[Rfam]
RNA sequence: UGCCACCGUUCACCGGGUUCCGUUCGUCCCCGAACGGCAGGAGCGGGGGACCCACUCUCGGCCGCGGACACCGUGGCCUCGGGGUGAAGUCCUCACCGCGGUUUCCCCUGACCGUGGUCUGGGCCGGGUGAUCUUCCACCCGAACCCGACAGCUGACCUCGUAGGCGUUGAAGAGGAAAACC
Numbered sequence: 001u002g003c004c005a006c007c008g009u010u011c012a013c014c015g016g017g018u019u020c021c022g023u024u025c026g027u028c029c030c031c032g033a034a035c036g037g038c039a040g041g042a043g044c045g046g047g048g049g050a051c052c053c054a055c056u057c058u059c060g061g062c063c064g065c066g067g068a069c070a071c072c073g074u075g076g077c078c079u080c081g082g083g084g085u086g087a088a089g090u091c092c093u094c095a096c097c098g099c100g101g102u103u104u105c106c107c108c109u110g111a112c113c114g115u116g117g118u119c120u121g122g123g124c125c126g127g128g129u130g131a132u133c134u135u136c137c138a139c140c141c142g143a144a145c146c147c148g149a150c151a152g153c154u155g156a157c158c159u160c161g162u163a164g165g166c167g168u169u170g171a172a173g174a175g176g177a178a179a180a181c182c
Base pairs, nucleotide, nucleotide: 001042003040043162044161045160046159047158048157053081082147083146084145090123091122092121126141127140128139129138
c-di-AMP riboswitch aptamer (ydaO/yuaA leader): a 182-nucleotide RNA sequence from Nostocoides sp. F2B08.
Gene Ontology terms of the family: regulation of gene expression and cyclic-di-AMP binding.